[Rfam]
RNA: DUF805b RNA
RNA sequence: AAAGCGGAAGCCGAAAAGCGUUUAAUAGAGUAGGCA
Numbered sequence: 001a002a003a004g005c006g007g008a009a010g011c012c013g014a015a016a017a018g019c020g021u022u023u024a025a026u027a028g029a030g031u032a033g034g035c036a
Stems, first nucleotide, its partner, number of pairs: 002021001004019002010035003